The family of this 68-nucleotide RNA from Leptotrombidium deliense is "mir-2 microRNA precursor family".
For this family Rfam cites "An extensive class of small RNAs in Caenorhabditis elegans" (Lee and Ambros, Science, 2001).
Lineage of the source: Eukaryota > Chelicerata > Prostigmata > Trombiculidae > Leptotrombidium.
The family has 56 seed sequences and 918 matches in Rfam 15.1.
RNA sequence: GCGGUCGUCAAAGAGGUUGUGAAAUGUUAAAGACGAGCUCAUAUCACAGCCAUCUUUGAUGAUCAUUG
Number, nucleotide and partner (000 for none) at each position: 001g000002c000003g000004g000005u062006c061007g060008u059009c058010a057011a056012a055013g054014a000015g051016g050017u049018u048019g047020u046021g045022a044023a000024a000025u043026g042027u041028u000029a000030a000031a000032g000033a000034c000035g000036a000037g000038c000039u000040c000041a027042u026043a025044u022045c021046a020047c019048a018049g017050c016051c015052a000053u000054c013055u012056u011057u010058g009059a008060u007061g006062a005063u000064c000065a000066u000067u000068g000